The record is a 72-nucleotide RNA from Medicago truncatula, which matches "MIR2629 microRNA precursor family" in Rfam. The organism belongs to Medicago, within Eukaryota. Gene Ontology terms of the family: RISC complex and miRNA-mediated post-transcriptional gene silencing.
Nucleotides: 072
Base pairs, nucleotide, nucleotide: 011068012067014065015064016063017062018061019060020059021058022057023056024055025054026053027052028051029050030049
Number, partner (000 for none) and nucleotide at each position: 001000u002000g003000u004000c005000c006000a007000g008000u009000u010000u011068u012067c013000c014065u015064c016063g017062g018061c019060a020059g021058u022057u023056a024055g025054c026053u027052g028051c029050c030049g031000c032000c033000g034000g035000u036000u037000c038000a039000c040000u041000a042000a043000a044000a045000a046000c047000u048000u049030c050029g051028g052027c053026a054025g055024u056023u057022a058021a059020c060019u061018g062017c063016c064015g065014a066000a067012g068011g069000g070000c071000a072000u